Shown here is a 168-nucleotide RNA from Pelotomaculum thermopropionicum, a member of the family "M-box riboswitch aptamer (ykoK leader)".
The base pairs follow the family's consensus structure.
Lineage of the source: Bacteria > Bacillota > Clostridia > Pelotomaculum > Pelotomaculum thermopropionicum.

[Rfam]
RNA sequence: UAUGUUCUUCGUUAGGUGAGGCUUCUACACAGACAUAUGCCACUGCCCGGAAAUGUCGAGAGACGCCUACGGGUUAACAGGUACUGCCGGAUUAAGGUUUUACUUAAUGUGGCUGGGAUCUUUUCCCUAGCUGUGUAUGUGUCAAAGCUUUGACGAGUGGAGAAGGUU
Numbered sequence: 001u002a003u004g005u006u007c008u009u010c011g012u013u014a015g016g017u018g019a020g021g022c023u024u025c026u027a028c029a030c031a032g033a034c035a036u037a038u039g040c041c042a043c044u045g046c047c048c049g050g051a052a053a054u055g056u057c058g059a060g061a062g063a064c065g066c067c068u069a070c071g072g073g074u075u076a077a078c079a080g081g082u083a084c085u086g087c088c089g090g091a092u093u094a095a096g097g098u099u100u101u102a103c104u105u106a107a108u109g110u111g112g113c114u115g116g117g118a119u120c121u122u123u124u125c126c127c128u129a130g131c132u133g134u135g136u137a138u139g140u141g142u143c144a145a146a147g148c149u150u151u152g153a154c155g156a157g158u159g160g161a162g163a164a165g166g167u168u
Stems, first nucleotide, its partner, number of pairs: 005164006011154002013095001015149003020143003025139001026137007039113005045074005054065004080104004086098003115127003